[Rfam]
RNA sequence: UAUUAGGUUGGUGCAAAGGCAAUUGUGGUUUUUGCCAUUACUUUCAAUGGCAAAAACCGCAAUUGCAUUUGCACCAGCCUAAUA
Numbered sequence: 001u002a003u004u005a006g007g008u009u010g011g012u013g014c015a016a017a018g019g020c021a022a023u024u025g026u027g028g029u030u031u032u033u034g035c036c037a038u039u040a041c042u043u044u045c046a047a048u049g050g051c052a053a054a055a056a057c058c059g060c061a062a063u064u065g066c067a068u069u070u071g072c073a074c075c076a077g078c079c080u081a082a083u084a
Stems, first nucleotide, its partner, number of pairs: 001084017019066021
mir-548 microRNA precursor family: an 84-nucleotide sequence from Piliocolobus tephrosceles. The base pairs follow the family's consensus structure, which was predicted with WAR. The source organism's lineage runs through Eukaryota, Sarcopterygii, Boreoeutheria, Euarchontoglires and Piliocolobus.